[Rfam]
RNA sequence: AUUCCAAUUCGUCGCGACUUACCCGAUAAUAGCGCCCCGUUUGGCAACGGGAAUCAGGAGAUCUCAUGUUC
Number, nucleotide and partner (000 for none) at each position: 001a000002u000003u000004c000005c000006a000007a000008u000009u000010c000011g000012u000013c000014g000015c000016g000017a000018c000019u000020u000021a000022c000023c000024c000025g000026a000027u000028a000029a000030u000031a000032g000033c000034g000035c000036c051037c050038c049039g048040u047041u046042u000043g000044g000045c000046a041047a040048c039049g038050g037051g036052a000053a000054u000055c000056a000057g000058g000059a000060g000061a000062u000063c000064u000065c000066a000067u000068g000069u000070u000071c000
RNA: PyrD leader